[Rfam]
RNA sequence: CUUCACCGCACCCAGCCACAACGGCCGCUCCGCAGAAUGCGCCUGACCAUAGGUGGCCAGCAGCGCCUGUGCCUC
Numbered sequence: 001c002u003u004c005a006c007c008g009c010a011c012c013c014a015g016c017c018a019c020a021a022c023g024g025c026c027g028c029u030c031c032g033c034a035g036a037a038u039g040c041g042c043c044u045g046a047c048c049a050u051a052g053g054u055g056g057c058c059a060g061c062a063g064c065g066c067c068u069g070u071g072c073c074u075c
Stems, first nucleotide, its partner, number of pairs: 015025003031071003038065002043060003047056003